[Rfam]
RNA: RNase MRP
RNA sequence: GCGCGACAGGACGGAGUGAGCGGGUCUAUCGACCCUGGAAAGUCCCCGGGCCUCCAUCCGCAGAGAUGCGGUCACGUAAUGGUGUCUCUUCGAGCUUUGGUCCCAAAUGGCUGAGACACGUGUGGAGCCUCUCAUGGCCAAACCGAAGAGUACAUUCAUGGCCGUUGGAAACAGUUAUUCACUCGAUCCGCAAGCGUUGGCUGGAUCUACAGAACGGGGCUUAUGAUCCUGUGGCG
Numbered sequence: 001g002c003g004c005g006a007c008a009g010g011a012c013g014g015a016g017u018g019a020g021c022g023g024g025u026c027u028a029u030c031g032a033c034c035c036u037g038g039a040a041a042g043u044c045c046c047c048g049g050g051c052c053u054c055c056a057u058c059c060g061c062a063g064a065g066a067u068g069c070g071g072u073c074a075c076g077u078a079a080u081g082g083u084g085u086c087u088c089u090u091c092g093a094g095c096u097u098u099g100g101u102c103c104c105a106a107a108u109g110g111c112u113g114a115g116a117c118a119c120g121u122g123u124g125g126a127g128c129c130u131c132u133c134a135u136g137g138c139c140a141a142a143c144c145g146a147a148g149a150g151u152a153c154a155u156u157c158a159u160g161g162c163c164g165u166u167g168g169a170a171a172c173a174g175u176u177a178u179u180c181a182c183u184c185g186a187u188c189c190g191c192a193a194g195c196g197u198u199g200g201c202u203g204g205a206u207c208u209a210c211a212g213a214a215c216g217g218g219g220c221u222u223a224u225g226a227u228c229c230u231g232u233g234g235c236g
Stems, first nucleotide, its partner, number of pairs: 002236003006232006014184006022035005040222003044219004059070004071077002079155003087149006096142004109129003118123001186206005